The family of this 42-nucleotide RNA from Paraburkholderia tropica is "Guanidine-II riboswitch aptamer (mini-ykkC)". It scores 39 bits against the family's covariance model. The family's consensus secondary structure is taken from published work. The source organism's lineage runs through Bacteria, Pseudomonadati, Betaproteobacteria, Burkholderiales and Paraburkholderia.
RNA sequence: GUGUAAGGACGACCUUGCACGUCUUUUUUCGGGGACGGCCCC
Numbered sequence: 001g002u003g004u005a006a007g008g009a010c011g012a013c014c015u016u017g018c019a020c021g022u023c024u025u026u027u028u029u030c031g032g033g034g035a036c037g038g039c040c041c042c
Stems, first nucleotide, its partner, number of pairs: 001020008031042004